Mammalian CPEB3 ribozyme: a 79-nucleotide sequence from Crocodylus porosus.
[Rfam]
RNA sequence: AGAGGUUGCUAGAUCAAGGCCAUAGCAGAAGUGAUUAUGGUGUAGCCCUGCCAGAUUCAAAGAAUCUGCAAAUUCAGCU
Dot-bracket structure: .................[[[...(((.((((((.......))).]]]....(((((((...)))))))....))).)))
Numbered sequence: 001a002g003a004g005g006u007u008g009c010u011a012g013a014u015c016a017a018g019g020c021c022a023u024a025g026c027a028g029a030a031g032u033g034a035u036u037a038u039g040g041u042g043u044a045g046c047c048c049u050g051c052c053a054g055a056u057u058c059a060a061a062g063a064a065u066c067u068g069c070a071a072a073u074u075c076a077g078c079u
Stems, first nucleotide, its partner, number of pairs: 018047003024079003028075003031043003052068007
Its family is annotated with RNA nuclease activity in the Gene Ontology. The family has 14 seed sequences and 5,706 matches in Rfam 15.1. Pairs were carried over by alignment from the consensus structure, which is taken from published work.